[Rfam]
RNA sequence: UCGUCAGGUAGGAUAAACCUUACCUGUUCCUCCUUUCGGAGGACAGAAUAGAACAUGAUGAUUGGAGCUCGCAUGAUUCGUGAUUAACGGCUGUGUGUAAUCAGGCCUUGCAAAAUGUACAUCUUCCUGGGGGUUGCACUCAGUA
Numbered sequence: 001u002c003g004u005c006a007g008g009u010a011g012g013a014u015a016a017a018c019c020u021u022a023c024c025u026g027u028u029c030c031u032c033c034u035u036u037c038g039g040a041g042g043a044c045a046g047a048a049u050a051g052a053a054c055a056u057g058a059u060g061a062u063u064g065g066a067g068c069u070c071g072c073a074u075g076a077u078u079c080g081u082g083a084u085u086a087a088c089g090g091c092u093g094u095g096u097g098u099a100a101u102c103a104g105g106c107c108u109u110g111c112a113a114a115a116u117g118u119a120c121a122u123c124u125u126c127c128u129g130g131g132g133g134u135u136g137c138a139c140u141c142a143g144u145a
Stems, first nucleotide, its partner, number of pairs: 024046003028043006076092001078090003081086001097134002101130005
RNA: U8 small nucleolar RNA
Organism: Lipotes vexillifer